The family of this 56-nucleotide sequence from Rhodococcus (subgen. Prescottella) equi is "F6 TB sRNA". Rfam 15.1 lists 310 matches to the family in 304 species. On this family, see Arnvig and Young, Mol Microbiol 2009: "Identification of small RNAs in Mycobacterium tuberculosis". Rfam classes the family as a small RNA. A search with the family's covariance model found it, with a score of 62 bits. The source organism's lineage runs through Bacteria, Actinomycetota, Mycobacteriales, Rhodococcus and Rhodococcus (subgen. Prescottella) equi.
[Rfam]
RNA sequence: CAGUUGGCUCCGCGUUGUUGCCUGACCCCCGACCUGGCAACGACGCGGAGCCACUC
Numbered sequence: 001c002a003g004u005u006g007g008c009u010c011c012g013c014g015u016u017g018u019u020g021c022c023u024g025a026c027c028c029c030c031g032a033c034c035u036g037g038c039a040a041c042g043a044c045g046c047g048g049a050g051c052c053a054c055u056c
Base pairs, nucleotide, nucleotide: 002055003054004053007051008050009049010048011047012046013045014044015043016042017041018040019039020038021037022036